This 170-nucleotide RNA from Anaerotruncus sp. CAG:390 belongs to the Rfam family "Lysine riboswitch aptamer". The family's consensus secondary structure is taken from published work.
RNA sequence: CACAAAGAUAGAGGCGCGAAGAUCAUAAGUAGCGCACCGUAGGCUGCGGUAAGCCCGUGACGGUGUGUGAAAGGGGUCAUCGCCGAAGCCGGCUCCCGCCGUGGGUGCUUUGGCUGGGCGUGCGGAUAACAUCCGUCCGACUGUCGCGUAAGCGGAGAGCUAUCGGAGAA
Numbered sequence: 001c002a003c004a005a006a007g008a009u010a011g012a013g014g015c016g017c018g019a020a021g022a023u024c025a026u027a028a029g030u031a032g033c034g035c036a037c038c039g040u041a042g043g044c045u046g047c048g049g050u051a052a053g054c055c056c057g058u059g060a061c062g063g064u065g066u067g068u069g070a071a072a073g074g075g076g077u078c079a080u081c082g083c084c085g086a087a088g089c090c091g092g093c094u095c096c097c098g099c100c101g102u103g104g105g106u107g108c109u110u111u112g113g114c115u116g117g118g119c120g121u122g123c124g125g126a127u128a129a130c131a132u133c134c135g136u137c138c139g140a141c142u143g144u145c146g147c148g149u150a151a152g153c154g155g156a157g158a159g160c161u162a163u164c165g166g167a168g169a170a
Stems, first nucleotide, its partner, number of pairs: 007164005016083004021078004032068008087115006095105002116142002119139002122136005144155004